[Rfam]
RNA sequence: CCUCUCGAAAAUGGUCGCAGCCACACCCGGCGCGAGAUGGAUGUUGGUGUAGAGCACUGAUUGGUAAGUUUGGAGGGAGACCUCCGGCUUGCCUGUCAAACUCCGAAGCUGAUAUCGUCUUAGACCGCCGGAGCCAGGGCGCAGGGGGUAAGCUCCUGCUCCGAAAGGGGAACAACUCAGACCGGGGUUAAGGCCCCUAAAUGCCGGCUAAGUGUUAAGCUUAAAGGGAGUCUCCGCUCUGAGACAGCGGGGAGAUAGGCUUAGAAGCAGCCAUUCUUUAAACAUCGCGUAACAGCGAACCCGUUAAGGGUAGAGGCCCCGAAAAUGGACGGGACUAAGCCGGCUGCCGAUACCUCGGGACAGGUGAAGAAAAGUAGCCUGAUUCUGUAGAGAGGCAUCCGGCGAGGGUGGAAGUACGGCUGUGAGGUCGUACGGACCUCGUUGGAAAGAGAAU
Number, nucleotide and partner (000 for none) at each position: 001c395002c394003u393004c392005u391006c390007g000008a000009a000010a000011a000012u023013g022014g021015u020016c000017g000018c000019a000020g015021c014022c013023a012024c000025a000026c133027c131028c130029g129030g128031c127032g126033c000034g000035a000036g119037a118038u117039g000040g116041a115042u114043g113044u112045u111046g110047g109048u000049g000050u000051a000052g104053a102054g101055c000056a000057c000058u000059g097060a096061u095062u000063g093064g092065u091066a090067a089068g088069u000070u000071u086072g085073g084074a083075g082076g081077g000078a000079g000080a000081c076082c075083u074084c073085c072086g071087g000088c068089u067090u066091g065092c064093c063094u000095g061096u060097c059098a000099a000100a000101c054102u053103c000104c052105g000106a000107a000108g000109c047110u046111g045112a044113u043114a042115u041116c040117g038118u037119c036120u000121u000122a000123g000124a000125c000126c032127g031128c030129c029130g028131g027132a000133g026134c000135c000136a000137g162138g161139g160140c000141g159142c158143a157144g156145g155146g154147g000148g000149u000150a000151a000152g000153c000154u146155c145156c144157u143158g142159c141160u139161c138162c137163g000164a000165a000166a000167g178168g177169g176170g000171a000172a000173c000174a000175a000176c169177u168178c167179a000180g000181a000182c358183c357184g356185g355186g354187g353188u352189u000190a000191a000192g348193g347194c346195c000196c000197c000198u000199a000200a000201a345202u000203g344204c343205c342206g341207g340208c339209u000210a000211a000212g000213u000214g000215u000216u000217a000218a000219g000220c000221u000222u000223a000224a000225a000226g320227g319228g318229a000230g317231u316232c315233u314234c313235c000236g311237c310238u309239c308240u000241g000242a000243g000244a000245c000246a000247g304248c303249g302250g301251g300252g000253a277254g276255a275256u000257a000258g272259g271260c270261u000262u000263a000264g000265a000266a000267g000268c000269a000270g260271c259272c258273a000274u000275u255276c254277u253278u282279u000280a000281a000282a278283c000284a000285u000286c000287g296288c295289g000290u000291a000292a000293c000294a000295g288296c287297g000298a000299a000300c251301c250302c249303g248304u247305u000306a000307a000308g239309g238310g237311u236312a000313g234314a233315g232316g231317c230318c228319c227320c226321g000322a000323a000324a000325a000326u000327g000328g000329a000330c000331g000332g000333g000334a000335c000336u000337a000338a000339g208340c207341c206342g205343g204344c203345u201346g194347c193348c192349g000350a000351u000352a188353c187354c186355u185356c184357g183358g182359g385360a384361c381362a380363g379364g378365u377366g000367a000368a000369g000370a000371a000372a000373a000374g000375u000376a000377g365378c364379c363380u362381g361382a000383u000384u360385c359386u000387g000388u000389a000390g006391a005392g004393a003394g002395g001396c449397a000398u446399c445400c444401g443402g442403c441404g440405a439406g438407g437408g000409u000410g000411g000412a000413a000414g433415u432416a431417c430418g429419g428420c427421u426422g000423u000424g000425a000426g421427g420428u419429c418430g417431u416432a415433c414434g000435g000436a000437c407438c406439u405440c404441g403442u402443u401444g400445g399446a398447a000448a000449g396450a000451g000452a000453a000454u000

The family of this 454-nucleotide part of an RNA from candidate division MSBL1 archaeon SCGC-AAA259A05 is "Archaeal large subunit ribosomal RNA". The organism belongs to candidate division MSBL1, within Archaea.